[Rfam]
RNA sequence: UACUGCAUCUACCAGACAGUGGUAGAUGUAGUAGUACUGUCUACUACUGUCUGGUAGAUGCAGCA
Numbered sequence: 001u002a003c004u005g006c007a008u009c010u011a012c013c014a015g016a017c018a019g020u021g022g023u024a025g026a027u028g029u030a031g032u033a034g035u036a037c038u039g040u041c042u043a044c045u046a047c048u049g050u051c052u053g054g055u056a057g058a059u060g061c062a063g064c065a
Base pairs, nucleotide, nucleotide: 003063004062005061006060007059008058009057010056011055012054013053014052015051016050017049018048019047020046021045022044023043024042025041026040

mir-8/mir-141/mir-200 microRNA precursor family: a 65-nucleotide RNA sequence from Ignelater luminosus. The literature on the family includes a 2001 paper in Science by Lagos-Quintana et al., "Identification of novel genes coding for small expressed RNAs". Rfam links the family to the GO terms miRNA-mediated post-transcriptional gene silencing and RISC complex. NCBI's taxonomy places the organism under Eukaryota, Metazoa, Neuropteroidea, Pyrophorini, Ignelater. The match comes from Rfam's covariance-model search (52 bits). Pairs were carried over by alignment from the consensus structure, which was predicted with RNAalifold.